[Rfam]
Source information:
The family of this 88-nucleotide sequence from Streptococcus pantholopis is "Glycine riboswitch aptamer". The base pairs follow the family's consensus structure. It scores 62 bits against the family's covariance model.
RNA sequence: UGACGGACUUCUGGAGAGACCUUUUUAGGCGCCGAAGGGGCAAGGCAAAUGUGCUCAAUCUCUCAGGCAAAAGGACAGAAAAAGCGAA
Number, nucleotide and partner (000 for none) at each position: 001u000002g000003a000004c000005g000006g000007a000008c000009u080010u079011c078012u077013g076014g000015a000016g000017a000018g000019a000020c029021c028022u027023u000024u000025u000026u000027a022028g021029g020030c000031g068032c067033c066034g064035a063036a000037g000038g062039g061040g060041c000042a000043a000044g055045g054046c000047a000048a000049a000050u000051g000052u000053g000054c045055u044056c000057a000058a000059u000060c040061u039062c038063u035064c034065a000066g033067g032068c031069a000070a000071a000072a000073g000074g000075a000076c013077a012078g011079a010080a009081a000082a000083a000084g000085c000086g000087a000088a000